[Rfam]
RNA sequence: AUAUAAAGAAGAGGAGCAUUACCUAGGUAGCUUAAUUUGUGGAGCCCAAACUCCUACACAAAUAAGUGAGGGAGAGUAAUGCCGAGAUGAUCCUAUUGGGAGUAGGAUUGUCGGUCGUUUAGGCUGAAUCCUAACGAUUGUCACUUAAUUUAUUAAGUGAAGAGCUUCUAGCAAA
Numbered sequence: 001a002u003a004u005a006a007a008g009a010a011g012a013g014g015a016g017c018a019u020u021a022c023c024u025a026g027g028u029a030g031c032u033u034a035a036u037u038u039g040u041g042g043a044g045c046c047c048a049a050a051c052u053c054c055u056a057c058a059c060a061a062a063u064a065a066g067u068g069a070g071g072g073a074g075a076g077u078a079a080u081g082c083c084g085a086g087a088u089g090a091u092c093c094u095a096u097u098g099g100g101a102g103u104a105g106g107a108u109u110g111u112c113g114g115u116c117g118u119u120u121a122g123g124c125u126g127a128a129u130c131c132u133a134a135c136g137a138u139u140g141u142c143a144c145u146u147a148a149u150u151u152a153u154u155a156a157g158u159g160a161a162g163a164g165c166u167u168c169u170a171g172c173a174a175a
Stems, first nucleotide, its partner, number of pairs: 007169005016082007024074001030067005036062003086112012113139006120133004141160007
This 175-nucleotide RNA from Aliivibrio fischeri belongs to the Rfam family "Lysine riboswitch aptamer".
The base pairs follow the family's consensus structure, which is taken from published work.
A search with the family's covariance model found it, with a score of 86 bits.